[Rfam]
RNA sequence: GGCGAUAUACGGGCUUCAUAAUAAACCCAUCGGACCCGGGGGCAGUACCCGGCGCCUCCACCAUUCAUCUCCAUCAUUUAUUUGGGGGGGCGAAACAGGAUCGACGAGGGCGUAAAGGUUGUUUCCGUCGCUCGGUAUUGUACCACCGUUAUCGGGCUAUUUUUUAGUUGCAAAUGACAACUAUGCGGAAGUUGCUGUCGCUGCGUAA
Numbered sequence: 001g002g003c004g005a006u007a008u009a010c011g012g013g014c015u016u017c018a019u020a021a022u023a024a025a026c027c028c029a030u031c032g033g034a035c036c037c038g039g040g041g042g043c044a045g046u047a048c049c050c051g052g053c054g055c056c057u058c059c060a061c062c063a064u065u066c067a068u069c070u071c072c073a074u075c076a077u078u079u080a081u082u083u084g085g086g087g088g089g090g091c092g093a094a095a096c097a098g099g100a101u102c103g104a105c106g107a108g109g110g111c112g113u114a115a116a117g118g119u120u121g122u123u124u125c126c127g128u129c130g131c132u133c134g135g136u137a138u139u140g141u142a143c144c145a146c147c148g149u150u151a152u153c154g155g156g157c158u159a160u161u162u163u164u165u166a167g168u169u170g171c172a173a174a175u176g177a178c179a180a181c182u183a184u185g186c187g188g189a190a191g192u193u194g195c196u197g198u199c200g201c202u203g204c205g206u207a208a
Base pairs, nucleotide, nucleotide: 001132002131003130004129005128014121017118026110027109028108030107031106032105036052037051038050039049040048053092054091055090056089057088058087059086133148134147135146136145
A member of the RNA family "permuted transfer-messenger RNA", 208 nucleotides long. The family's consensus secondary structure is taken from published work. The family's RNA type in Rfam is non-coding RNA gene. The match comes from Rfam's covariance-model search (139 bits). About the family: Bacterial tmRNA, also known as 10Sa RNA or SsrA, is named for its dual tRNA and mRNA-like properties. Its role is to liberate the mRNA from a stalled ribosome. To accomplish this part of the tmRNA is used as a reading frame that ends in a translation stop signal. The broken mRNA is replaced in the ribosome by the tmRNA and translation of the tmRNA leads to addition of a proteolysis tag to the incomplete protein enabling recognition by a protease. Recently a number of permuted tmRNA genes have been found encoded in two parts. tmRNAs have been identified in eubacteria and some chloroplasts but are absent from archaeal and eukaryote nuclear genomes.